Rfam assigns this 84-nucleotide RNA sequence from Mesorhabditis belari to the family "mir-81 microRNA precursor family".
The family's consensus secondary structure was predicted with RNAalifold.
The family has 10 seed sequences and 68 matches in Rfam 15.1.
The match comes from Rfam's covariance-model search (55 bits).
RNA sequence: UAGGAUACGGCCGGCGGUUUUCACCAUGGUCUGAGAGGAAAACUCGUGUCUGAGAUCAUUGUGAAAGCUUCUCGCCGUUAUCCC
Numbered sequence: 001u002a003g004g005a006u007a008c009g010g011c012c013g014g015c016g017g018u019u020u021u022c023a024c025c026a027u028g029g030u031c032u033g034a035g036a037g038g039a040a041a042a043c044u045c046g047u048g049u050c051u052g053a054g055a056u057c058a059u060u061g062u063g064a065a066a067g068c069u070u071c072u073c074g075c076c077g078u079u080a081u082c083c084c
Stems, first nucleotide, its partner, number of pairs: 009076003016069009027058006034051003037045002